The record is a 75-nucleotide RNA from Nannospalax galili, which matches "mir-3473 microRNA precursor family" in Rfam.

[Rfam]
RNA sequence: ACUGCUGAGCCAUGUCUCCAGCCCCCCCCAUAUUUUAAAAAUAAAAAUAUGGGGCUGGAGAUAUGGCUCAGCAGU
Dot-bracket structure: .(((((((((((((((((((((((...........................))))))))))))))))))))))).
NCBI's taxonomy places the organism under Eukaryota, Bilateria, Craniata, Amniota, Nannospalax.